Shown here is a 107-nucleotide RNA from Secundilactobacillus collinoides, a member of the family "PyrR binding site".
The family has 41 seed sequences and 1,498 matches in Rfam 15.1.
The base pairs follow the family's consensus structure, which is taken from published work.
Rfam describes the family as follows. This family represents the PyrR binding site and terminator structure.
[Rfam]
RNA sequence: UAAACCUUUAACAUUUAGUCCUGUGAGGCUAAAAAGGAUCGGUAAUGACUGGCUAUAAGUCCAGACACCAACCUCUUUACUCACAGGCAGUAAAGAGGUUUUUUAAU
Numbered sequence: 001u002a003a004a005c006c007u008u009u010a011a012c013a014u015u016u017a018g019u020c021c022u023g024u025g026a027g028g029c030u031a032a033a034a035a036g037g038a039u040c041g042g043u044a045a046u047g048a049c050u051g052g053c054u055a056u057a058a059g060u061c062c063a064g065a066c067a068c069c070a071a072c073c074u075c076u077u078u079a080c081u082c083a084c085a086g087g088c089a090g091u092a093a094a095g096a097g098g099u100u101u102u103u104u105a106a107u
Stems, first nucleotide, its partner, number of pairs: 003039001005037005015032006046067002049064004054059001070100012